This 110-nucleotide sequence from Paenibacillus hemerocallicola belongs to the Rfam family "pan motif". Rfam classes the family as a cis-regulatory element. It scores 40 bits against the family's covariance model. The organism belongs to Paenibacillus, within Bacteria. Pairs were carried over by alignment from the consensus structure, which is taken from published work.
RNA sequence: GAGGCGGUAUCCUAGCUGGAACUGCACUCGGAUCUAUCCGGUUUCGCAAUGACGCGUUUCAUGCAAGUCCAGUAAUUCUGCUCUGAGCCUAAAGGGACCGAGACGGAAAA
Numbered sequence: 001g002a003g004g005c006g007g008u009a010u011c012c013u014a015g016c017u018g019g020a021a022c023u024g025c026a027c028u029c030g031g032a033u034c035u036a037u038c039c040g041g042u043u044u045c046g047c048a049a050u051g052a053c054g055c056g057u058u059u060c061a062u063g064c065a066a067g068u069c070c071a072g073u074a075a076u077u078c079u080g081c082u083c084u085g086a087g088c089c090u091a092a093a094g095g096g097a098c099c100g101a102g103a104c105g106g107a108a109a110a
Base pairs, nucleotide, nucleotide: 001029002028003027004025005024006023007022008021010020011019078106079105080104081102082101083100085098088096089095